[Rfam]
RNA sequence: AUAAAUGAAUAUGUUGUACCGUAGACAGUAGGGGCGUAAAGCUUAAUCAUCCUACCGAGGUUUUAUGAGCAAACUGAUUUUAUGAUUUAUGUUUGUAAUAUAAAGCUCCCAUGUCUGCGUGGGAGCUUAUUUUAUGCCUGG
Numbered sequence: 001a002u003a004a005a006u007g008a009a010u011a012u013g014u015u016g017u018a019c020c021g022u023a024g025a026c027a028g029u030a031g032g033g034g035c036g037u038a039a040a041g042c043u044u045a046a047u048c049a050u051c052c053u054a055c056c057g058a059g060g061u062u063u064u065a066u067g068a069g070c071a072a073a074c075u076g077a078u079u080u081u082a083u084g085a086u087u088u089a090u091g092u093u094u095g096u097a098a099u100a101u102a103a104a105g106c107u108c109c110c111a112u113g114u115c116u117g118c119g120u121g122g123g124a125g126c127u128u129a130u131u132u133u134a135u136g137c138c139u140g141g
Stems, first nucleotide, its partner, number of pairs: 028055006034042002105126009
Description: A member of the RNA family "Ribosomal protein L10 leader" from Oceanobacillus halophilus, 141 nucleotides long. This family is a putative r-protein leader autoregulatory structure found in B. subtilis and other low-GC Gram-positive bacteria. The literature on the family includes a 1994 paper in Prog Nucleic Acid Res Mol Biol by Zengel and Lindahl, "Diverse mechanisms for regulating ribosomal protein synthesis in Escherichia coli". The family's RNA type in Rfam is cis-regulatory leader.